[Rfam]
RNA sequence: GGAUUGAUGAUGACACCCUUGUAUGCAUUCCUUGGAAAAUAUGAAAAAUGAGUGAGAACACCCUACCAUCUCCUCAUCGAAUCUGAGGUAC
Numbered sequence: 001g002g003a004u005u006g007a008u009g010a011u012g013a014c015a016c017c018c019u020u021g022u023a024u025g026c027a028u029u030c031c032u033u034g035g036a037a038a039a040u041a042u043g044a045a046a047a048a049u050g051a052g053u054g055a056g057a058a059c060a061c062c063c064u065a066c067c068a069u070c071u072c073c074u075c076a077u078c079g080a081a082u083c084u085g086a087g088g089u090a091c
Stems, first nucleotide, its partner, number of pairs: 001091001003089003026054005032046001